[Rfam]
RNA sequence: AAGCAGGAUCUAGUUACAAUGUAGCUGCGAAGUGCUGCAUUGUCUUUGCACUCUGCUCAAAAUAAAACUGUUUCCUUCCAAGCCCUGUGGCCCGGUGCUGUAGCCACCAGGGAUGUGUGGUCUCACACAU
Numbered sequence: 001a002a003g004c005a006g007g008a009u010c011u012a013g014u015u016a017c018a019a020u021g022u023a024g025c026u027g028c029g030a031a032g033u034g035c036u037g038c039a040u041u042g043u044c045u046u047u048g049c050a051c052u053c054u055g056c057u058c059a060a061a062a063u064a065a066a067a068c069u070g071u072u073u074c075c076u077u078c079c080a081a082g083c084c085c086u087g088u089g090g091c092c093c094g095g096u097g098c099u100g101u102a103g104c105c106a107c108c109a110g111g112g113a114u115g116u117g118u119g120g121u122c123u124c125a126c127a128c129a130u
Base pairs, nucleotide, nucleotide: 003056004055005054006053007052016043017042018041019040020039021038022037023036024035025034084111085110086109087108088106089105090104091103